Rfam assigns this 130-nucleotide RNA sequence from Gossypium harknessii to the family "MIR7502 microRNA precursor family". Its family is annotated with miRNA-mediated post-transcriptional gene silencing and RISC complex in the Gene Ontology.
Nucleotides: 130
Base pairs, nucleotide, nucleotide: 002129003128004127005126007124008123009122010121011120012119013118014117015116016115018113019112020111021110023108025106026105028103029102030101031100032099033098
Number, partner (000 for none) and nucleotide at each position: 001000u002129g003128u004127u005126a006000c007124a008123a009122a010121u011120u012119u013118c014117a015116u016115c017000a018113a019112u020111u021110u022000g023108u024000a025106c026105u027000g028103u029102u030101a031100a032099a033098a034000a035000c036000u037000g038000a039000c040000u041000u042000g043000a044000u045000u046000g047000a048000c049000g050000a051000a052000a053000u054000a055000a056000c057000u058000a059000g060000g061000c062000a063000g064000u065000a066000a067000c068000a069000c070000g071000u072000g073000g074000c075000c076000a077000u078000g079000c080000u081000a082000a083000u084000g085000u086000a087000u088000g089000g090000a091000g092000a093000c094000c095000a096000g097000u098033u099032u100031u101030u102029a103028a104000u105026a106025g107000a108023a109000a110021a111020a112019a113018u114000g115016g116015a117014u118013g119012g120011g121010a122009u123008u124007u125000u126005u127004a128003g129002c130000a